[Rfam]
RNA: MIR2593 microRNA precursor family
RNA sequence: UUAUAAGCAAAAAAAUACUUUUUAGGUUCAUUGAAUAAUUGAUGUAUCUGGUCUAUAAUAUGGACCAGAUACAUCAAUUAUUCAAUGAACCUAAAAAGUUAUUUUGCUUAUAA
Numbered sequence: 001u002u003a004u005a006a007g008c009a010a011a012a013a014a015a016u017a018c019u020u021u022u023u024a025g026g027u028u029c030a031u032u033g034a035a036u037a038a039u040u041g042a043u044g045u046a047u048c049u050g051g052u053c054u055a056u057a058a059u060a061u062g063g064a065c066c067a068g069a070u071a072c073a074u075c076a077a078u079u080a081u082u083c084a085a086u087g088a089a090c091c092u093a094a095a096a097a098g099u100u101a102u103u104u105u106g107c108u109u110a111u112a113a
Base pairs, nucleotide, nucleotide: 002112003111004110005109006108007107008106009105010104011103012102014100018098019097020096021095022094023093024092025091027089028088029087030086031085032084033083034082035081036080037079038078039077040076041075042074043073044072049067050066051065052064